Description:
Rfam assigns this 301-nucleotide RNA from Nitrosospira multiformis to the family "Bacterial RNase P class A". Gene Ontology terms of the family: tRNA processing, dimeric ribonuclease P complex and ribonuclease P activity. The organism belongs to Nitrosospira multiformis, within Bacteria. It scores 249 bits against the family's covariance model.
RNA sequence: GAAGCUGGCCAGACAGUCGCUGCCUGUCCUCGGUGACGAGUGCAGGGAGAGGAAAGUCCGGGCUCCGCAGAGCAGGAUGCCGGUUAACGGCCGGCCGCCGUAAGGUGAGGAACAGGGCCACAGAGACGAGCGUAUUAAGUUACGGUGAAACGCGGUAACCUCCAUCCGGAGCAAGACCAAAUAGGCAGGCGAUGAUGCUGCUCGCUGAGCCUGCGGGUAGGUUGCUUGAGCGUGCGGGUGACUGCACGCCUAGAGGAAUGACUGUCCUUGACAGAACCCGGCUUAUCGGCCAGCUUCUUUC
Numbered sequence: 001g002a003a004g005c006u007g008g009c010c011a012g013a014c015a016g017u018c019g020c021u022g023c024c025u026g027u028c029c030u031c032g033g034u035g036a037c038g039a040g041u042g043c044a045g046g047g048a049g050a051g052g053a054a055a056g057u058c059c060g061g062g063c064u065c066c067g068c069a070g071a072g073c074a075g076g077a078u079g080c081c082g083g084u085u086a087a088c089g090g091c092c093g094g095c096c097g098c099c100g101u102a103a104g105g106u107g108a109g110g111a112a113c114a115g116g117g118c119c120a121c122a123g124a125g126a127c128g129a130g131c132g133u134a135u136u137a138a139g140u141u142a143c144g145g146u147g148a149a150a151c152g153c154g155g156u157a158a159c160c161u162c163c164a165u166c167c168g169g170a171g172c173a174a175g176a177c178c179a180a181a182u183a184g185g186c187a188g189g190c191g192a193u194g195a196u197g198c199u200g201c202u203c204g205c206u207g208a209g210c211c212u213g214c215g216g217g218u219a220g221g222u223u224g225c226u227u228g229a230g231c232g233u234g235c236g237g238g239u240g241a242c243u244g245c246a247c248g249c250c251u252a253g254a255g256g257a258a259u260g261a262c263u264g265u266c267c268u269u270g271a272c273a274g275a276a277c278c279c280g281g282c283u284u285a286u287c288g289g290c291c292a293g294c295u296u297c298u299u300u301c
Base pairs, nucleotide, nucleotide: 001297002296003295004294005293006292007291008290009289010288011286012266013265014264015263016262017261018260020049021048023046024045025044026043027042054284055283056282058281059280060279061278062277063171064170065169066168070203071202072201073200075167076166077165078164079163080094081093082092083091084090095109096107097106098105099104110162111161115160116159117156118155119154131144132143133142134141175223176222177221178220185214186213187212188211189210190209197205198204230249231248232247233246234245235244236243237242